Record summary: Salmonella enterica sRNA STnc40: a 65-nucleotide RNA sequence from Pluralibacter gergoviae.
RNA sequence: ACAGUGUCACGGCCGCCUGAGCUAAGGCCCAUCAUAAAAAAGGCGCUGAGUUAAGCGCCUUUUUU
Numbered sequence: 001a002c003a004g005u006g007u008c009a010c011g012g013c014c015g016c017c018u019g020a021g022c023u024a025a026g027g028c029c030c031a032u033c034a035u036a037a038a039a040a041a042g043g044c045g046c047u048g049a050g051u052u053a054a055g056c057g058c059c060u061u062u063u064u065u
Stems, first nucleotide, its partner, number of pairs: 002019003006013002038063010